[Rfam]
RNA: Small nucleolar RNA J33
Organism: Kalanchoe fedtschenkoi
RNA sequence: UAGUGAGAGGAAUGAUGUAUUAUCGAAGGGCUUUAAAGCUGCAAGCUUUCCUUGACAUGGCAAAUGAGGAAGGUAUUAGUG
Numbered sequence: 001u002a003g004u005g006a007g008a009g010g011a012a013u014g015a016u017g018u019a020u021u022a023u024c025g026a027a028g029g030g031c032u033u034u035a036a037a038g039c040u041g042c043a044a045g046c047u048u049u050c051c052u053u054g055a056c057a058u059g060g061c062a063a064a065u066g067a068g069g070a071a072g073g074u075a076u077u078a079g080u081g
Base pairs, nucleotide, nucleotide: 001081002080004078005077006076